[Rfam]
RNA sequence: ACACAGGAAAGGAGGUGGUCCGCGAAAUUGAUAGCGUCAUGGACAUGUGAGGUGGCUGCGCGCUAGCAGCGUUGGCUCGGAAGAGUCAGCGACAACCGCGCUGGCGAAUUCCCCGCAGCCACCCGGCCCCCGAGCCUUCGGUCUGUCCAACCGAGAAUGCGCUCGGGGGCCGUUCCAU
Numbered sequence: 001a002c003a004c005a006g007g008a009a010a011g012g013a014g015g016u017g018g019u020c021c022g023c024g025a026a027a028u029u030g031a032u033a034g035c036g037u038c039a040u041g042g043a044c045a046u047g048u049g050a051g052g053u054g055g056c057u058g059c060g061c062g063c064u065a066g067c068a069g070c071g072u073u074g075g076c077u078c079g080g081a082a083g084a085g086u087c088a089g090c091g092a093c094a095a096c097c098g099c100g101c102u103g104g105c106g107a108a109u110u111c112c113c114c115g116c117a118g119c120c121a122c123c124c125g126g127c128c129c130c131c132g133a134g135c136c137u138u139c140g141g142u143c144u145g146u147c148c149a150a151c152c153g154a155g156a157a158u159g160c161g162c163u164c165g166g167g168g169g170c171c172g173u174u175c176c177a178u
Base pairs, nucleotide, nucleotide: 015059016058017057018056019055061106062105063104064103065102066101067100069099070098071097074093076091124172125171126170127169128168129167130166131165132164133163134162135161137155138154139153140152141151142150
RNA: Actinobacteria sRNA Ms_IGR-5